[Rfam]
RNA: MIR168 microRNA precursor family
Organism: Zostera marina
RNA sequence: CUCGCCGUCGUCUCUGAUUUGCUUGGUGCAGGUCGGGAAGAGAAGACUGGCUCCUUCCGUUCGUCAGAUCGGAUCGGAUCGGAUUUGUUUUCUUUUCUUCCUGUUUUGCAUCAACCGAAUCGGAUACGGAUGCGACU
Numbered sequence: 001c002u003c004g005c006c007g008u009c010g011u012c013u014c015u016g017a018u019u020u021g022c023u024u025g026g027u028g029c030a031g032g033u034c035g036g037g038a039a040g041a042g043a044a045g046a047c048u049g050g051c052u053c054c055u056u057c058c059g060u061u062c063g064u065c066a067g068a069u070c071g072g073a074u075c076g077g078a079u080c081g082g083a084u085u086u087g088u089u090u091u092c093u094u095u096u097c098u099u100c101c102u103g104u105u106u107u108g109c110a111u112c113a114a115c116c117g118a119a120u121c122g123g124a125u126a127c128g129g130a131u132g133c134g135a136c137u
Base pairs, nucleotide, nucleotide: 013124014123017120018119019118020117023114024113025112026111027110028109029108030107031106032105034103035102036101037100038099040097041096042095043094044093045092046091